[Rfam]
RNA sequence: GGACUGUGCCUUUCAGGCAUCCUCUCCUAAAACUUUUCGGGCUGGUCUUCGGAUCAGCCCUUUUUUUUAGGCGGA
Dot-bracket structure: .......((((...))))....................(((((((((....)))))))))...............
A member of the RNA family "Makes More Granules Regulator RNA (mmgR)" from Sphingobium sp. SCG-1, 75 nucleotides long. By type it is a small RNA. Rfam's curators write: SuhB later renamed mmgR (makes more granules regulator) was a putative non-coding RNA found multiple times in the Agrobacterium tumefaciens genome and related alpha-proteobacteria. Other non-coding RNAs uncovered in the same analysis include: speF, ybhL, metA, and serC.Several studies inSinorhizobium meliloti showed that suhB element is indeed a non-coding RNA:firstly it was detected on Northern blot and called Sm8RNA, secondly in an RNAseq study referred to as SmelC689.The mutant phenotype's (strain lacking the small RNA) cytoplasm contains higher content of polyhydroxybutyrate (PBH)storage granules than wild type strain. The sRNA is required to limit the PBH intracellular accumulation when the nitrogen-fixing Sinorhizobium meliloti is under condition of surplus carbon in relation to nitrogen. On this family, see Corbino et al., Genome Biol 2005: "Evidence for a second class of S-adenosylmethionine riboswitches and other regulatory RNA motifs in alpha-proteobacteria". It scores 56 bits against the family's covariance model. Its Rfam clan is "suhB sRNA clan".